[Rfam]
RNA sequence: GAGUUACGGUAUGGAGCGAGGUUAAGAUGCUGGAGCAUCGGAGCCGAAGCGAAAGCGAGUCUGAAGAGGGCGGAAGUUGCAUGCUGUAGACCCGAAACCGGGUGACCUAUCCAUGUGCAGGUUGAAGCGAGAGUAAAAUCUCGUGGAGGACCGAACCCAUAUACGUUGAAAAGUGUUGGGAUGACGUGUGGAUAGCGGUGAAAUUCCAAUCGAACCCGGAGAUAGCUGGUU
Numbered sequence: 001g002a003g004u005u006a007c008g009g010u011a012u013g014g015a016g017c018g019a020g021g022u023u024a025a026g027a028u029g030c031u032g033g034a035g036c037a038u039c040g041g042a043g044c045c046g047a048a049g050c051g052a053a054a055g056c057g058a059g060u061c062u063g064a065a066g067a068g069g070g071c072g073g074a075a076g077u078u079g080c081a082u083g084c085u086g087u088a089g090a091c092c093c094g095a096a097a098c099c100g101g102g103u104g105a106c107c108u109a110u111c112c113a114u115g116u117g118c119a120g121g122u123u124g125a126a127g128c129g130a131g132a133g134u135a136a137a138a139u140c141u142c143g144u145g146g147a148g149g150a151c152c153g154a155a156c157c158c159a160u161a162u163a164c165g166u167u168g169a170a171a172a173g174u175g176u177u178g179g180g181a182u183g184a185c186g187u188g189u190g191g192a193u194a195g196c197g198g199u200g201a202a203a204u205u206c207c208a209a210u211c212g213a214a215c216c217c218g219g220a221g222a223u224a225g226c227u228g229g230u231u
Stems, first nucleotide, its partner, number of pairs: 005088009015078003020045004026039003049056002059071004091229002094226001098219006107195011118183001120152004127144006156180003161176004197207002

The record is a 231-nucleotide part of an RNA from Zhenpiania hominis, which matches "Bacterial large subunit ribosomal RNA" in Rfam. Taxonomically the source falls in Zhenpiania (Bacteria, Clostridia, Peptostreptococcales, Anaerovoracaceae). The match comes from Rfam's covariance-model search (2866 bits).